[Rfam]
RNA sequence: GUGGGCUAUGGGGAUAUGGUGCCCAAAACCUACAUUGGGAUGUUUGUGGGUGCCUUAUGUGCCUUGGCAGGUGUACUGACGAUAGCUUUACCAGUACCUGUGAUUGUAUCAAAU
Dot-bracket structure: ((..(.(((((..(((.(..((..............((.(........(((.........)))..........).))................)).).)))..))))).)..))
The family of this 114-nucleotide RNA from Dendroctonus ponderosae is "Potassium channel RNA editing signal". The match comes from Rfam's covariance-model search (90 bits). The organism belongs to Dendroctonus, within Eukaryota. By type it is a cis-regulatory element. Rfam describes the family as follows. This family represents a group of sequences related to the human potassium channel Kv1.1 hairpin element which directs the efficient modification of an adenosine to inosine by an adenosine deaminase acting on RNA (ADAR). The ADAR modification causes an isoleucine/valine recoding event which lies in the ion-conducting pore of the potassium channel. It is thought that this editing event targets the process of fast inactivation and allows a more rapid recovery from inactivation at negative potentials. Its family is annotated with adenosine to inosine editing in the Gene Ontology.